[Rfam]
RNA sequence: GGGCAUUCAGAAGGCUUGCUCUCUGGGCUACCAGCAGAGAACCCGGUUUCUCCCUCCCCGCCCAGGGGAAAGUCCCCGGACCCGUGGCAGAAAGUGCCCUGGUUGAAUCCAGUGUCGACCCGCAGCUGCGCCGCUGACGGGCGGAGACGUUCAAGCGAACCGAGCCCGGUGCUCCGCGGGUCGACCUUGUCAGCGUUCAUAGUCAUGCAAGUGAGCCGUGACGCUCAAACAUAACGGGGCUCAUUCUCGGAAUGCA
Numbered sequence: 001g002g003g004c005a006u007u008c009a010g011a012a013g014g015c016u017u018g019c020u021c022u023c024u025g026g027g028c029u030a031c032c033a034g035c036a037g038a039g040a041a042c043c044c045g046g047u048u049u050c051u052c053c054c055u056c057c058c059c060g061c062c063c064a065g066g067g068g069a070a071a072g073u074c075c076c077c078g079g080a081c082c083c084g085u086g087g088c089a090g091a092a093a094g095u096g097c098c099c100u101g102g103u104u105g106a107a108u109c110c111a112g113u114g115u116c117g118a119c120c121c122g123c124a125g126c127u128g129c130g131c132c133g134c135u136g137a138c139g140g141g142c143g144g145a146g147a148c149g150u151u152c153a154a155g156c157g158a159a160c161c162g163a164g165c166c167c168g169g170u171g172c173u174c175c176g177c178g179g180g181u182c183g184a185c186c187u188u189g190u191c192a193g194c195g196u197u198c199a200u201a202g203u204c205a206u207g208c209a210a211g212u213g214a215g216c217c218g219u220g221a222c223g224c225u226c227a228a229a230c231a232u233a234a235c236g237g238g239g240c241u242c243a244u245u246c247u248c249g250g251a252a253u254g255c256a
Base pairs, nucleotide, nucleotide: 003255004254005253006252007251008250010248011247014212015211016210017209018208019207022066023065024064025063026062027061028060037052038051039050040049041048071241072240074239075238076237077236086098087097088096089095099112100111101110102109115184116183117182118181119180120179121178122177123176128172129171130170139167140166141165142164149160150159151158152157214225215224216223
Dot-bracket structure: ..((((((.((..((((((..(((((((........(((((......))))).......)))))))....[[.[[[[........((((.....))))((((......))))..(((((((((....(((........((((......((((....))))...))))..)))...)))))))))......................)))))).(((......)))..........]]]]]].....)).)))))).

A member of the RNA family "RNase MRP" from Scophthalmus maximus, 256 nucleotides long. The family's consensus secondary structure is taken from published work. From the family's description: RNase MRP is an enzymatically active ribonucleoprotein with two distinct roles in eukaryotes. The source organism's lineage runs through Eukaryota, Eumetazoa, Bilateria, Clupeocephala and Scophthalmus. On this family, see Schmitt et al., FASEB J 1993: "Secondary structure of RNase MRP RNA as predicted by phylogenetic comparison". It is annotated as a ribozyme.